The family of this 103-nucleotide RNA from Macaca mulatta is "Y RNA". A search with the family's covariance model found it, with a score of 50 bits. Taxonomically the source falls in Macaca (Eukaryota, Teleostomi, Boreoeutheria, Primates). Y RNAs are components of the Ro ribonucleoprotein particle (Ro RNP), in association with Ro60 and La proteins. The Y RNAs and Ro60 and La proteins are well conserved, but the function of the Ro RNP is not known. In humans the RNA component can be one of four small RNAs -- hY1, hY3, hY4 and hY5. These small RNAs are predicted to fold into a conserved secondary structure containing three stem structures.
RNA sequence: GGCUAGUCCAAAUGCAGUUGCGUUCACAACUAGUUGAUCAGAACCAGUAAGAGAUUUCUUUGUUCCUUCUCCACUUUCCAGUUCCUCACUUGACUAGCCUGAA
Numbered sequence: 001g002g003c004u005a006g007u008c009c010a011a012a013u014g015c016a017g018u019u020g021c022g023u024u025c026a027c028a029a030c031u032a033g034u035u036g037a038u039c040a041g042a043a044c045c046a047g048u049a050a051g052a053g054a055u056u057u058c059u060u061u062g063u064u065c066c067u068u069c070u071c072c073a074c075u076u077u078c079c080a081g082u083u084c085c086u087c088a089c090u091u092g093a094c095u096a097g098c099c100u101g102a103a
Stems, first nucleotide, its partner, number of pairs: 001099008010091002014087001016082001018080001020078001022077001028064003032060002